[Rfam]
The record is a 73-nucleotide RNA from Vireo altiloquus, which matches "tRNA" in Rfam. It is annotated as a transfer RNA. Pairs were carried over by alignment from the consensus structure, which is taken from published work. Rfam describes the family as follows. Transfer RNA (tRNA) molecules are approximately 80 nucleotides in length. The match comes from Rfam's covariance-model search (46 bits).
RNA sequence: GGCCUGGUGGUGUAGUGGUUAAGCAUACGGCACCGUAAUUGCCGGGGCCCGGGUUCGAUUCCCGGCUAGGAUA
Numbered sequence: 001g002g003c004c005u006g007g008u009g010g011u012g013u014a015g016u017g018g019u020u021a022a023g024c025a026u027a028c029g030g031c032a033c034c035g036u037a038a039u040u041g042c043c044g045g046g047g048c049c050c051g052g053g054u055u056c057g058a059u060u061c062c063c064g065g066c067u068a069g070g071a072u073a
Stems, first nucleotide, its partner, number of pairs: 001072001003070005010026004028044005049065005
Dot-bracket structure: (.(((((..((((.........)))).(((((.......)))))....(((((.......)))))))))).).